[Rfam]
RNA sequence: GGGAAACUAGAGCUGGGCUUGGGGCGAGAGCCACCCCAAGUCCAGGGCCAAGAAGGCUCC
Numbered sequence: 001g002g003g004a005a006a007c008u009a010g011a012g013c014u015g016g017g018c019u020u021g022g023g024g025c026g027a028g029a030g031c032c033a034c035c036c037c038a039a040g041u042c043c044a045g046g047g048c049c050a051a052g053a054a055g056g057c058u059c060c
Stems, first nucleotide, its partner, number of pairs: 014044011028059005
RNA: Ma3 gene ribosomal frameshift signal